[Rfam]
RNA sequence: GAUUCGUAGUGAGAAUCUACGACGCCUAUUGGGGAAGGUUUCCUGGGCAAGGUUCGUCCACCCAGGGUUAGUCAGGACCUAAGACGAGGCUGAAAAGCGUAGCCGAUGGACAACAGGUUAAUAUUCCUGUACUUUCUAUAAUAGUGAUGGAGUGACGGAGGAGGAUAAUCUUACCACUUACUGGAUUGUGGGGUAAGCGUUCACUGGUGACUGUAGGCAAAUCCGCAGUCUAUAACCGGGAGGCGUGAUGCAUAGGGUCAAACCGAAUUAGAUGAUUCCACACUUCCAAGAAAAGCUUCUAAACUUAAUAUUAUGGAAACCUGUACCGAGAACGGACACACGUCCCCGAGAUGAGUAUUCUAAGGCGAG
Numbered sequence: 001g002a003u004u005c006g007u008a009g010u011g012a013g014a015a016u017c018u019a020c021g022a023c024g025c026c027u028a029u030u031g032g033g034g035a036a037g038g039u040u041u042c043c044u045g046g047g048c049a050a051g052g053u054u055c056g057u058c059c060a061c062c063c064a065g066g067g068u069u070a071g072u073c074a075g076g077a078c079c080u081a082a083g084a085c086g087a088g089g090c091u092g093a094a095a096a097g098c099g100u101a102g103c104c105g106a107u108g109g110a111c112a113a114c115a116g117g118u119u120a121a122u123a124u125u126c127c128u129g130u131a132c133u134u135u136c137u138a139u140a141a142u143a144g145u146g147a148u149g150g151a152g153u154g155a156c157g158g159a160g161g162a163g164g165a166u167a168a169u170c171u172u173a174c175c176a177c178u179u180a181c182u183g184g185a186u187u188g189u190g191g192g193g194u195a196a197g198c199g200u201u202c203a204c205u206g207g208u209g210a211c212u213g214u215a216g217g218c219a220a221a222u223c224c225g226c227a228g229u230c231u232a233u234a235a236c237c238g239g240g241a242g243g244c245g246u247g248a249u250g251c252a253u254a255g256g257g258u259c260a261a262a263c264c265g266a267a268u269u270a271g272a273u274g275a276u277u278c279c280a281c282a283c284u285u286c287c288a289a290g291a292a293a294a295g296c297u298u299c300u301a302a303a304c305u306u307a308a309u310a311u312u313a314u315g316g317a318a319a320c321c322u323g324u325a326c327c328g329a330g331a332a333c334g335g336a337c338a339c340a341c342g343u344c345c346c347c348g349a350g351a352u353g354a355g356u357a358u359u360c361u362a363a364g365g366c367g368a369g
Stems, first nucleotide, its partner, number of pairs: 004022006023367004031347004037327002042066006051059002073323004078109002083104001085102001087100001089098003113130005133319011144304002149299005157286004163279003168273004174191004193251002197246004204239003209230006216224002253266001255264002333342002349361003